[Rfam]
RNA sequence: AGAGCCAUAGGGACGGAUCCCAAACCAGCCUUAACGAAAGAAACCUGCCAUGGGAGUCUGGAAGACUGGUGACCGUCCUAAUGACUUA
Numbered sequence: 001a002g003a004g005c006c007a008u009a010g011g012g013a014c015g016g017a018u019c020c021c022a023a024a025c026c027a028g029c030c031u032u033a034a035c036g037a038a039a040g041a042a043a044c045c046u047g048c049c050a051u052g053g054g055a056g057u058c059u060g061g062a063a064g065a066c067u068g069g070u071g072a073c074c075g076u077c078c079u080a081a082u083g084a085c086u087u088a
Base pairs, nucleotide, nucleotide: 002087003086004085006083007082008081010079011078012077013076015074016073018071020069021068022067025064030061039059040058041057044054045053046052047051
Overview
The family of this 88-nucleotide sequence from Equus caballus is "mir-9014 microRNA precursor family". The match comes from Rfam's covariance-model search (73 bits). The base pairs follow the family's consensus structure, which was predicted with RNAalifold.